[Rfam]
This 110-nucleotide sequence from Asparagus officinalis belongs to the Rfam family "Plastid-psbA-1 3UTR RNA".
RNA sequence: UUGAAGUUCCAUCUACAAAUGGGUAAGACUUUAGUCUUAAUGUAGUAAGAAUCGUUGAAGGAGCCAUGCCCAAUAUCUUGUUUUCGUAAGAUAUUGGGUAUAGCUCCCUC
Number, nucleotide and partner (000 for none) at each position: 001u000002u000003g000004a000005a000006g000007u000008u023009c022010c021011a020012u019013c000014u000015a000016c000017a000018a000019a012020u011021g010022g009023g008024u000025a000026a000027g000028a000029c000030u000031u000032u000033a000034g000035u000036c000037u000038u000039a000040a000041u000042g000043u000044a000045g000046u000047a000048a000049g000050a000051a000052u000053c000054g000055u000056u000057g110058a109059a000060g107061g106062a105063g104064c103065c000066a101067u100068g099069c098070c000071c096072a095073a094074u000075a092076u091077c090078u089079u088080g000081u000082u000083u000084u000085c000086g000087u000088a079089a078090g077091a076092u075093a000094u073095u072096g071097g000098g069099u068100a067101u066102a000103g064104c063105u062106c061107c060108c000109u058110c057

It is annotated as a cis-regulatory element. Rfam describes the family as follows. Plastid psbA-1 is a non-coding RNA (ncRNA) present in plastids. It was identified in inverted repeat sequences in the 3 prime untranslate region (3UTR) of photosystem II quinone-binding protein (psbA). NCBI's taxonomy places the organism under Eukaryota, Streptophytina, Spermatophyta, Asparagales, Asparagus. On this family, see Richter et al., Plant Commun 2023: "Retrograde signaling in plants: A critical review focusing on the GUN pathway and beyond".